[Rfam]
RNA: mir-459 microRNA precursor family
Nucleotides: 080
Stems, first nucleotide, its partner, number of pairs: 011070009021060006029054007037047002
Number, partner (000 for none) and nucleotide at each position: 001000g002000c003000u004000u005000c006000u007000g008000c009000u010000g011070u012069c013068a014067g015066u016065a017064a018063c019062a020000a021060g022059g023058a024057u025056u026055c027000a028000u029054c030053c031052u032051g033050u034049u035048g036000u037047g038046a039000a040000a041000c042000a043000c044000a045000g046038u047037c048035c049034a050033a051032c052031a053030g054029g055026g056025a057024a058023u059022c060021u061000u062019u063018g064017u065016u066015a067014c068013u069012g070011g071000g072000g073000g074000u075000a076000u077000a078000g079000g080000a